[Rfam]
Nucleotides: 154
Stems, first nucleotide, its partner, number of pairs: 001060003005057004011051001013049009025039001061081003065076004082121005090113004094108003125149002129145002
Number, partner (000 for none) and nucleotide at each position: 001060g002059g003058g004000u005057g006056c007055u008054u009000g010000a011051g012000g013049c014048u015047u016046u017045c018044u019043g020042g021041g022000c023000u024000u025039u026000g027000a028000g029000c030000a031000u032000u033000u034000u035000c036000a037000g038000g039025g040000u041021u042020c043019c044018a045017g046016a047015a048014a049013g050000g051011u052000g053000a054008a055007a056006g057005c058003c059002c060001c061081a062080g063079g064000c065076g066075a067074u068073a069000u070000u071000u072000c073068u074067a075066u076065c077000a078000a079063c080062c081061u082121g083120a084119g085118g086117c087000u088000a089000g090113c091112a092111u093110c094108g095107a096106a097000c098000c099000c100000g101000a102000a103000c104000a105000g106096u107095u108094c109000a110093g111092a112091u113090g114000g115000u116000a117086g118085u119084c120083u121082c122000u123000u124000c125149u126148u127000u128000g129145c130144a131000g132000g133000g134000a135000g136000g137000c138000a139000a140000g141000a142000u143000a144130u145129g146000c147000u148126g149125a150000c151000g152000a153000a154000g
Source information: This 154-nucleotide RNA sequence from Kluyvera genomosp. 3 belongs to the Rfam family "sok antitoxin (CssrC)". Rfam describes the family as follows. Also identified in Shigella as CssrC. It is annotated as an antitoxin RNA. The base pairs follow the family's consensus structure, which is taken from published work. The match comes from Rfam's covariance-model search (89 bits). Rfam links the family to the GO term mRNA binding.